[Rfam]
RNA sequence: UGUCAACACAAUGGAGGCAGAGCAUGGCACUUUCAAAUUCUCUUAAUGCCUUAGCAAUCGGUGUAGCGUUUGCGUUUGUCGGAGUGAUGCUUUUCAUCUGACGCGCGACUUUGGGGUUUAACACGCACACCCGUCGUUGAUUAUCAUAACCCAUUAAAAAAGCGCAGGUUUUUCAGAACCUGCGCUUU
Numbered sequence: 001u002g003u004c005a006a007c008a009c010a011a012u013g014g015a016g017g018c019a020g021a022g023c024a025u026g027g028c029a030c031u032u033u034c035a036a037a038u039u040c041u042c043u044u045a046a047u048g049c050c051u052u053a054g055c056a057a058u059c060g061g062u063g064u065a066g067c068g069u070u071u072g073c074g075u076u077u078g079u080c081g082g083a084g085u086g087a088u089g090c091u092u093u094u095c096a097u098c099u100g101a102c103g104c105g106c107g108a109c110u111u112u113g114g115g116g117u118u119u120a121a122c123a124c125g126c127a128c129a130c131c132c133g134u135c136g137u138u139g140a141u142u143a144u145c146a147u148a149a150c151c152c153a154u155u156a157a158a159a160a161a162g163c164g165c166a167g168g169u170u171u172u173u174c175a176g177a178a179c180c181u182g183c184g185c186u187u188u
Stems, first nucleotide, its partner, number of pairs: 016050004026042002029039001159188013

Rfam assigns this 188-nucleotide sequence from Agrobacterium bohemicum to the family "Rhizobiales sRNA Atu_C9".
The base pairs follow the family's consensus structure, which was predicted with WAR.
NCBI's taxonomy places the organism under Bacteria, Pseudomonadati, Alphaproteobacteria, Hyphomicrobiales, Agrobacterium.
On this family, see Wilms et al., RNA Biol 2012: "Deep sequencing uncovers numerous small RNAs on all four replicons of the plant pathogen Agrobacterium tumefaciens".
A search with the family's covariance model found it, with a score of 100 bits.